Rfam assigns this 117-nucleotide sequence from Pleionea mediterranea to the family "ALIL pseudoknot". The source organism's lineage runs through Bacteria, Pseudomonadati, Gammaproteobacteria, Pleioneaceae and Pleionea. The family has 26 seed sequences and 2,146 matches in Rfam 15.1.
RNA sequence: AGCAUUUUUUGCCCAAGCGGAGCUCGACCGCAAACCAAAGAAAUAAUCCAGUUUAUUGAUGUGUAUCGCUCGUUGUAUGGUGUCGAGCCGAUUUGUCGUGUUGUGCAAAUUGCACCA
Numbered sequence: 001a002g003c004a005u006u007u008u009u010u011g012c013c014c015a016a017g018c019g020g021a022g023c024u025c026g027a028c029c030g031c032a033a034a035c036c037a038a039a040g041a042a043a044u045a046a047u048c049c050a051g052u053u054u055a056u057u058g059a060u061g062u063g064u065a066u067c068g069c070u071c072g073u074u075g076u077a078u079g080g081u082g083u084c085g086a087g088c089c090g091a092u093u094u095g096u097c098g099u100g101u102u103g104u105g106c107a108a109a110u111u112g113c114a115c116c117a
Base pairs, nucleotide, nucleotide: 017031018030019029020028078117079116080115081114082113089112090111092109093108094107095106096105